Rfam assigns this 108-nucleotide RNA sequence from Salarias fasciatus to the family "Vault RNA".
Rfam's curators write: This family of RNAs are found as part of the enigmatic vault ribonucleoprotein complex. The complex consists of a major vault protein (MVP), two minor vault proteins (VPARP and TEP1), and several small untranslated RNA molecules. It has been suggested that the vault complex is involved in drug resistance.
A search with the family's covariance model found it, with a score of 56 bits.
The family's RNA type in Rfam is non-coding RNA gene.
The family's consensus secondary structure is taken from published work.
[Rfam]
RNA sequence: GCAUUGGUUUAGCUCAGUGGUUACUUCCUCUGACAUUUCAUCUCCGUGAUGAUCCUCAGUUCUUCCCUCAUCCGAGGGAUCAAACCGCGGGCGCUGUCCAGUGCAUUU
Numbered sequence: 001g002c003a004u005u006g007g008u009u010u011a012g013c014u015c016a017g018u019g020g021u022u023a024c025u026u027c028c029u030c031u032g033a034c035a036u037u038u039c040a041u042c043u044c045c046g047u048g049a050u051g052a053u054c055c056u057c058a059g060u061u062c063u064u065c066c067c068u069c070a071u072c073c074g075a076g077g078g079a080u081c082a083a084a085c086c087g088c089g090g091g092c093g094c095u096g097u098c099c100a101g102u103g104c105a106u107u108u
Base pairs, nucleotide, nucleotide: 002103003102004101005100006099007098012092013091014090015089017088018087019086020085026079027078028077029076